Shown here is a 106-nucleotide RNA sequence from a Dermatophilaceae bacterium, a member of the family "Glycine riboswitch aptamer".
RNA sequence: CGAGUCGUGGCGGGAGAGUCCCGCCGUCCCCCACCAGGGACGUCGGGCGCCGAAGGAGCAAGACCCUCCCCGGGAAUCUCUCAGGCCCCCGUACCGUCAGGACUAG
Numbered sequence: 001c002g003a004g005u006c007g008u009g010g011c012g013g014g015a016g017a018g019u020c021c022c023g024c025c026g027u028c029c030c031c032c033a034c035c036a037g038g039g040a041c042g043u044c045g046g047g048c049g050c051c052g053a054a055g056g057a058g059c060a061a062g063a064c065c066c067u068c069c070c071c072g073g074g075a076a077u078c079u080c081u082c083a084g085g086c087c088c089c090c091g092u093a094c095c096g097u098c099a100g101g102a103c104u105a106g
Stems, first nucleotide, its partner, number of pairs: 006101001008099006020047004049086003052082002056080003064072001

Its family is annotated with glycine biosynthetic process in the Gene Ontology. NCBI's taxonomy places the organism under Bacteria, Bacillati, Actinomycetota, Actinomycetes, Dermatophilaceae. About the family: This family represents the bacterial glycine riboswitch.